[Rfam]
RNA sequence: AUGCAUCCAGUAGUAAUUGAACCUGUGACUUCUCAAUUAUGAGUUGGGUGCUUUUACCAUCCAGCCAUAGAUGC
Numbered sequence: 001a002u003g004c005a006u007c008c009a010g011u012a013g014u015a016a017u018u019g020a021a022c023c024u025g026u027g028a029c030u031u032c033u034c035a036a037u038u039a040u041g042a043g044u045u046g047g048g049u050g051c052u053u054u055u056a057c058c059a060u061c062c063a064g065c066c067a068u069a070g071a072u073g074c
Stems, first nucleotide, its partner, number of pairs: 003074005010026004039068003043065008
Plastid-ycf2 5UTR RNA: a 74-nucleotide RNA from Taxus chinensis. On this family, see Richter et al., Plant Commun 2023: "Retrograde signaling in plants: A critical review focusing on the GUN pathway and beyond". Plastid ycf2 is a non-coding RNA (ncRNA) recognised in plastids. It was found in the prime untranslated region (5UTR) of ycf2 genes, it presents a tRNA-like motif which suggests it can be involved in mRNA maturation, particularly involved in defining the precise 5' end of the transcript. The family has 204 seed sequences and 3,521 matches in Rfam 15.1.